[Rfam]
RNA: Flavo-1 RNA
Organism: Flavobacterium johnsoniae
RNA sequence: CUCCAGCCCCGAUUGCAGCGGAAAUCCGUUUCUGCCGGGGUCCGGCACAAAAGAUUACAGCGCAAAGCGGGAGAGGCU
Numbered sequence: 001c002u003c004c005a006g007c008c009c010c011g012a013u014u015g016c017a018g019c020g021g022a023a024a025u026c027c028g029u030u031u032c033u034g035c036c037g038g039g040g041u042c043c044g045g046c047a048c049a050a051a052a053g054a055u056u057a058c059a060g061c062g063c064a065a066a067g068c069g070g071g072a073g074a075g076g077c078u
Base pairs, nucleotide, nucleotide: 009070010069011068013066014065018061019060023056024055025054026053030051031050034046035045036044037043